mir-278 microRNA precursor family: a 76-nucleotide RNA from Aedes aegypti. A search with the family's covariance model found it, with a score of 78 bits. NCBI's taxonomy places the organism under Eukaryota, Panarthropoda, Eumetabola, Panorpida, Stegomyia.
RNA sequence: GGUGCGAACGGACGAUAGUCUUCAGCGGCCGUGCAUUUGAUAGAAGUGGUCGGUGGGACUUUCGUCCGUUUGUAAC
Numbered sequence: 001g002g003u004g005c006g007a008a009c010g011g012a013c014g015a016u017a018g019u020c021u022u023c024a025g026c027g028g029c030c031g032u033g034c035a036u037u038u039g040a041u042a043g044a045a046g047u048g049g050u051c052g053g054u055g056g057g058a059c060u061u062u063c064g065u066c067c068g069u070u071u072g073u074a075a076c
Base pairs, nucleotide, nucleotide: 003074004073005072006071007070009068010067011066012065013064014063015062017060018059019058020057021056023055024054026052027051028050029049030048